[Rfam]
RNA sequence: UACCCAGUUUCGGGGACCUUGGUACAGGCAGGCCGGGGAUUCCCCUCUUUAACACCAGGCUCGGCACGCACAUCGCGACGGCCAAUGGUUUCGGGAACCCCAGUACAGGCAGGCUGGGACUUCCCUCUUUAACACCAGGCCCACCCCGCUCACAGCGACGGGCCAGGCUUUCGGGAACCCCGGUACAGGCAGGCCGGGACUUCCCUCUUUAAUACCCGGCCC
Numbered sequence: 001u002a003c004c005c006a007g008u009u010u011c012g013g014g015g016a017c018c019u020u021g022g023u024a025c026a027g028g029c030a031g032g033c034c035g036g037g038g039a040u041u042c043c044c045c046u047c048u049u050u051a052a053c054a055c056c057a058g059g060c061u062c063g064g065c066a067c068g069c070a071c072a073u074c075g076c077g078a079c080g081g082c083c084a085a086u087g088g089u090u091u092c093g094g095g096a097a098c099c100c101c102a103g104u105a106c107a108g109g110c111a112g113g114c115u116g117g118g119a120c121u122u123c124c125c126u127c128u129u130u131a132a133c134a135c136c137a138g139g140c141c142c143a144c145c146c147c148g149c150u151c152a153c154a155g156c157g158a159c160g161g162g163c164c165a166g167g168c169u170u171u172c173g174g175g176a177a178c179c180c181c182g183g184u185a186c187a188g189g190c191a192g193g194c195c196g197g198g199a200c201u202u203c204c205c206u207c208u209u210u211a212a213u214a215c216c217c218g219g220c221c222c
Stems, first nucleotide, its partner, number of pairs: 012045005017038007058083004067075002093125005099118006138169004145162004173206003177202001179198006
The family of this 222-nucleotide RNA from Pseudomonas fluorescens is "Nitrogen regulated small RNA". Rfam's curators put it in the seed alignment. Its family is annotated with bacterial-type flagellum-dependent swarming motility in the Gene Ontology.